A member of the RNA family "Small nucleolar RNA SNORD125" from Pelodiscus sinensis, 97 nucleotides long. By type it is a C/D-box small nucleolar RNA. For this family Rfam cites "snoSeeker: an advanced computational package for screening of guide and orphan snoRNA genes in the human genome" (Yang et al., Nucleic Acids Res, 2006). Its Rfam clan is "SNORD61 clan". A search with the family's covariance model found it, with a score of 87 bits. Pairs were carried over by alignment from the consensus structure, which was predicted with WAR. The source organism's lineage runs through Eukaryota, Opisthokonta, Teleostomi, Trionychidae and Pelodiscus.

RNA sequence: AGGCUGGGCAGCCUCGCGUGAUGAUCCUUCUCUCUGAGUGCCCAUGGUGAUGAGUAACCUGAGCCUCUAAGAAGUUGACUGAGGAGGCUGGCGCUCA
Numbered sequence: 001a002g003g004c005u006g007g008g009c010a011g012c013c014u015c016g017c018g019u020g021a022u023g024a025u026c027c028u029u030c031u032c033u034c035u036g037a038g039u040g041c042c043c044a045u046g047g048u049g050a051u052g053a054g055u056a057a058c059c060u061g062a063g064c065c066u067c068u069a070a071g072a073a074g075u076u077g078a079c080u081g082a083g084g085a086g087g088c089u090g091g092c093g094c095u096c097a
Stems, first nucleotide, its partner, number of pairs: 007092001009090007